[Rfam]
The record is a 75-nucleotide RNA sequence from Haloquadratum sp. J07HQX50, which matches "tRNA" in Rfam. The match comes from Rfam's covariance-model search (61 bits). It is annotated as a transfer RNA.

Nucleotides: 075
Stems, first nucleotide, its partner, number of pairs: 001074007010027003029045005051067005
Number, partner (000 for none) and nucleotide at each position: 001074g002073g003072g004071c005070u006069g007068c008000u009000g010027g011026u012025c013000u014000a015000g016000u017000c018000c019000g020000g021000u022000u023000a024000u025012g026011a027010c028000a029045g030044c031043u032042c033041c034000u035000u036000c037000a038000c039000a040000c041033g042032g043031a044030g045029c046000a047000g048000g049000u050000c051067g052066a053065u054064g055063g056000u057000u058000c059000a060000a061000a062000u063055c064054c065053a066052u067051c068007g069006c070005a071004g072003c073002c074001c075000a

Its family is annotated with triplet codon-amino acid adaptor activity in the Gene Ontology.
Taxonomically the source falls in Haloquadratum (Archaea, Methanobacteriati, Halobacteria, Haloferacaceae).